[Rfam]
RNA sequence: UACGAUAAACGGCAAACCUAUUGAAAGGUAGGGACGCAAAGCCACGGGCCUAAACAUUUUGCAGGGCAGCCGGGCUACCGAA
Numbered sequence: 001u002a003c004g005a006u007a008a009a010c011g012g013c014a015a016a017c018c019u020a021u022u023g024a025a026a027g028g029u030a031g032g033g034a035c036g037c038a039a040a041g042c043c044a045c046g047g048g049c050c051u052a053a054a055c056a057u058u059u060u061g062c063a064g065g066g067c068a069g070c071c072g073g074g075c076u077a078c079c080g081a082a
Stems, first nucleotide, its partner, number of pairs: 012037002017032006040076004045072003048067003055061002